[Rfam]
Description: Shown here is a 45-nucleotide RNA sequence from Corallorhiza striata, a member of the family "Plastid-rpoB 5UTR RNA". Rfam 15.1 lists 102 matches to the family in 69 species. It is one of the family's seed sequences. About the family: Plastid rpoB is a non-coding RNA (ncRNA) recognised in plastids. It was found in the 5 prime untranslated region (5UTR) of a chloroplast-encoded RNA polymerase subunit (rpoB) in plastids, suggesting a posible cis-regulatory function.
RNA sequence: GCUGUUCCAGACUCCUCUGUUUUAUCUCAUUUCAUAGAGAGCAGA
Numbered sequence: 001g002c003u004g005u006u007c008c009a010g011a012c013u014c015c016u017c018u019g020u021u022u023u024a025u026c027u028c029a030u031u032u033c034a035u036a037g038a039g040a041g042c043a044g045a
Base pairs, nucleotide, nucleotide: 002044003043004042005041006040007039

On this family, see Richter et al., Plant Commun 2023: "Retrograde signaling in plants: A critical review focusing on the GUN pathway and beyond".
The source organism's lineage runs through Eukaryota, Streptophytina, Magnoliopsida, Epidendreae and Corallorhiza striata.